RNA: manA RNA
RNA sequence: UAUCGGGUUCGCUACCUGAUACGGGAGUGACUGAAUAAGCUUGCUGGCAUAAGGCUAGUUAAGGUGAUGAGACACAGGUGGUGCUGCUGCUCGCAAGAGUAGAACCGACCUACCAGUCGGGUCUCAGAUAGUACAGUAAAAAUCUACUCAAUGUAGCAAUGCCCUGUACUUGUUGGUAAACAUGAACCCAACCUCCCACCAA
Dot-bracket structure: ((((((((.....)))))))).(((((..((...........((((((.....))))))....))..((((((.(((.[[[[.)))((((((....))))))..(((((..]]]])))))))))))...(((((((.......((((...[[)))).......))))))).(((((.....]]....)))))))))).....